[Rfam]
Description:
Small nucleolar RNA SNORD67: a 103-nucleotide RNA sequence from Actinia tenebrosa. For this family Rfam cites "RNomics: an experimental approach that identifies 201 candidates for novel, small, non-messenger RNAs in mouse" (Huttenhofer et al., EMBO J, 2001). The organism belongs to Actinia, within Eukaryota. It scores 43 bits against the family's covariance model. Rfam classes the family as a C/D-box small nucleolar RNA. Its family is annotated with RNA processing and nucleolus in the Gene Ontology.
RNA sequence: UUCCCAAGUGAUGAGUUGCACACAUCACCAGUGCUUGUGGAGUUCCCAGGUACUGGCUGAUACCAUGAUGACAUCUAGAAUGCACAGGGGCCAUCUGAUGGGA
Numbered sequence: 001u002u003c004c005c006a007a008g009u010g011a012u013g014a015g016u017u018g019c020a021c022a023c024a025u026c027a028c029c030a031g032u033g034c035u036u037g038u039g040g041a042g043u044u045c046c047c048a049g050g051u052a053c054u055g056g057c058u059g060a061u062a063c064c065a066u067g068a069u070g071a072c073a074u075c076u077a078g079a080a081u082g083c084a085c086a087g088g089g090g091c092c093a094u095c096u097g098a099u100g101g102g103a
Stems, first nucleotide, its partner, number of pairs: 003102001005100002024061004028056004033051003039047002